[Rfam]
RNA sequence: UGACAGUGCUAAGUAGUAGUGCCGCAGGUAAUACGUUAUGAUUUACCUGCACUCUGCUGCUUAACACAAGCA
Number, nucleotide and partner (000 for none) at each position: 001u072002g071003a000004c000005a000006g067007u066008g000009c000010u063011a062012a061013g060014u059015a058016g057017u056018a055019g054020u000021g000022c000023c000024g050025c049026a048027g047028g046029u045030a044031a000032u000033a000034c000035g000036u000037u000038a000039u000040g000041a000042u000043u000044u030045a029046c028047c027048u026049g025050c024051a000052c000053u000054c019055u018056g017057c016058u015059g014060c013061u012062u011063a010064a000065c000066a007067c006068a000069a000070g000071c002072a001
RNA: mir-252 microRNA precursor family